[Rfam]
RNA sequence: GUGAAGAUGAUGUAAACUUUUCAGUGUCUGAAACGUGAUGCUUUCAAAGGAACCACUGAUUCAC
Numbered sequence: 001g002u003g004a005a006g007a008u009g010a011u012g013u014a015a016a017c018u019u020u021u022c023a024g025u026g027u028c029u030g031a032a033a034c035g036u037g038a039u040g041c042u043u044u045c046a047a048a049g050g051a052a053c054c055a056c057u058g059a060u061u062c063a064c
Base pairs, nucleotide, nucleotide: 001064002063003062004061005060
Dot-bracket structure: (((((......................................................)))))

The record is a 64-nucleotide RNA from Synaphobranchus kaupii, which matches "Small nucleolar RNA SNORD42" in Rfam. By type it is a C/D-box small nucleolar RNA. The base pairs follow the family's consensus structure, which was predicted with PFOLD. snoRNA U42 is found in intron 3 of the ribosomal protein L23a (RPL23a) gene in humans and is also present in mice. The source organism's lineage runs through Eukaryota, Chordata, Gnathostomata, Neopterygii and Synaphobranchus.